Rfam assigns this 119-nucleotide RNA sequence from Chelonobacter oris to the family "Ribosomal S15 leader". Rfam links the family to the GO term regulation of translation, ncRNA-mediated. The organism belongs to Chelonobacter, within Bacteria. On this family, see Benard et al., Biochimie 1996: "Pseudoknot and translational control in the expression of the S15 ribosomal protein". The E. coli Ribosomal S15 gene 5' UTR can form two alternative structures. One that is a series of three hairpins, The other includes a pseudoknot. This structure causes translational regulation of the S15 protein. The alignment of this family contains only the final two hairpins which are conserved in other species, and also includes the complete region that forms the alternate structures.
RNA sequence: UGUCAUAGCUGAAUUAGAGAUCGGCUAUUGAUGUAUUUUUCACUCAUUUUUCAGGAGUUAUUAUGUCUCUAAGUGCAGAAGCAAAAGCAAAAAUCGUUGCCGAAUUUGGGCGUGACGGU
Numbered sequence: 001u002g003u004c005a006u007a008g009c010u011g012a013a014u015u016a017g018a019g020a021u022c023g024g025c026u027a028u029u030g031a032u033g034u035a036u037u038u039u040u041c042a043c044u045c046a047u048u049u050u051u052c053a054g055g056a057g058u059u060a061u062u063a064u065g066u067c068u069c070u071a072a073g074u075g076c077a078g079a080a081g082c083a084a085a086a087g088c089a090a091a092a093a094u095c096g097u098u099g100c101c102g103a104a105u106u107u108g109g110g111c112g113u114g115a116c117g118g119u
Base pairs, nucleotide, nucleotide: 007026008025009024010023011022012021047073048072049071054070055069056068057067